[Rfam]
Shown here is a 91-nucleotide RNA from Firmicutes bacterium CAG:129, a member of the family "Glycine riboswitch aptamer". NCBI's taxonomy places the organism under Bacteria, Bacillati, Bacillota. The literature on the family includes a 2004 paper in Science by Mandal et al., "A glycine-dependent riboswitch that uses cooperative binding to control gene expression".
RNA sequence: CUCCGAAAAGUGCGGCUUGCCGCACGCCGAAGGUGCAACCUGCAGGAUGCGAUAUGCUGUGUCAGGGAAACUCUCAGGUCAUAAAACGGAG
Number, nucleotide and partner (000 for none) at each position: 001c091002u090003c089004c088005g087006a000007a000008a000009a000010g000011u024012g023013c022014g021015g000016c000017u000018u000019g000020c000021c014022g013023c012024a011025c000026g079027c078028c077029g075030a074031a000032g000033g073034u000035g071036c000037a000038a000039c066040c065041u064042g063043c000044a000045g000046g000047a000048u000049g000050c000051g000052a000053u000054a000055u000056g000057c000058u000059g000060u000061g000062u000063c042064a041065g040066g039067g000068a000069a000070a000071c035072u000073c033074u030075c029076a000077g028078g027079u026080c000081a000082u000083a000084a000085a000086a000087c005088g004089g003090a002091g001
A search with the family's covariance model found it, with a score of 38 bits. This family represents the bacterial glycine riboswitch.